[Rfam]
RNA sequence: ACCUGCACUUCGCUCGCCCCGUUCCUGCGUUAGUGGACGGUGUCGAUGGAUGGUGUGAGGAAGA
Numbered sequence: 001a002c003c004u005g006c007a008c009u010u011c012g013c014u015c016g017c018c019c020c021g022u023u024c025c026u027g028c029g030u031u032a033g034u035g036g037a038c039g040g041u042g043u044c045g046a047u048g049g050a051u052g053g054u055g056u057g058a059g060g061a062a063g064a
Base pairs, nucleotide, nucleotide: 002060003059004058005056006055007054008053014046015045016044018042020039021038022037023036024035
Dot-bracket structure: .(((((((.....(((.(.(((((..........)))))..).)))......)))).)))....